[Rfam]
RNA sequence: UCAGCUGAUCGUUGUUGUCAUUCUUCAAUUUUUGCAGGUAACUCAGAAAGCGUUUCUUGAGCUUCCCGGGGAUGAGCGUCUGGGAGAGCUGAUUCUGCAGACCGGCUAGGAGCCGCAGGGCGUUCUCCGGGGCGCGGCCCGAGACCGUCGCGUCGUAGACAGCCAGGAGACCCGGGAGCAGAUUCACCGCAGCGGCCGUCUCCCUCAAGGUGCUGUG
Dot-bracket structure: (.(..............).).............................((.......(((..((((..............)))).....((....((...((..............)))).))))).((.....(..(.(.(((......))).).)....((.(.....).))...).......))...))........................
Numbered sequence: 001u002c003a004g005c006u007g008a009u010c011g012u013u014g015u016u017g018u019c020a021u022u023c024u025u026c027a028a029u030u031u032u033u034g035c036a037g038g039u040a041a042c043u044c045a046g047a048a049a050g051c052g053u054u055u056c057u058u059g060a061g062c063u064u065c066c067c068g069g070g071g072a073u074g075a076g077c078g079u080c081u082g083g084g085a086g087a088g089c090u091g092a093u094u095c096u097g098c099a100g101a102c103c104g105g106c107u108a109g110g111a112g113c114c115g116c117a118g119g120g121c122g123u124u125c126u127c128c129g130g131g132g133c134g135c136g137g138c139c140c141g142a143g144a145c146c147g148u149c150g151c152g153u154c155g156u157a158g159a160c161a162g163c164c165a166g167g168a169g170a171c172c173c174g175g176g177a178g179c180a181g182a183u184u185c186a187c188c189g190c191a192g193c194g195g196c197c198g199u200c201u202c203c204c205u206c207a208a209g210g211u212g213c214u215g216u217g
Stems, first nucleotide, its partner, number of pairs: 001020001003018001050193002059127003064085004091124002097121002102119002129188002136179001139158001141156001143154003163175002166172001